SAM-I/IV (S-adenosyl methionine) riboswitch aptamer: a 108-nucleotide RNA from Microvirga alba. It scores 55 bits against the family's covariance model. A reference for the family is Weinberg et al. (2008), "The aptamer core of SAM-IV riboswitches mimics the ligand-binding site of SAM-I riboswitches", RNA. Rfam links the family to the GO terms S-adenosylmethionine metabolic process and regulation of gene expression. The source organism's lineage runs through Bacteria, Pseudomonadati, Hyphomicrobiales, Methylobacteriaceae and Microvirga.

RNA sequence: ACAGCACAUCAAGAGUUGGGCCUUUGGUCCAACGCCAACCUGCUUACCGAGCAAGGUGGUGCUUCCGCGAGGGAGGAUGUGGCCGAACCGGCAACCAAACGGUAUCCU
Numbered sequence: 001a002c003a004g005c006a007c008a009u010c011a012a013g014a015g016u017u018g019g020g021c022c023u024u025u026g027g028u029c030c031a032a033c034g035c036c037a038a039c040c041u042g043c044u045u046a047c048c049g050a051g052c053a054a055g056g057u058g059g060u061g062c063u064u065c066c067g068c069g070a071g072g073g074a075g076g077a078u079g080u081g082g083c084c085g086a087a088c089c090g091g092c093a094a095c096c097a098a099a100c101g102g103u104a105u106c107c108u
Base pairs, nucleotide, nucleotide: 006080007079008078009077010076015033016032017031018030019029020028021027022026034060035059036058039056040055041054042052043051044050048102082092083091084090085089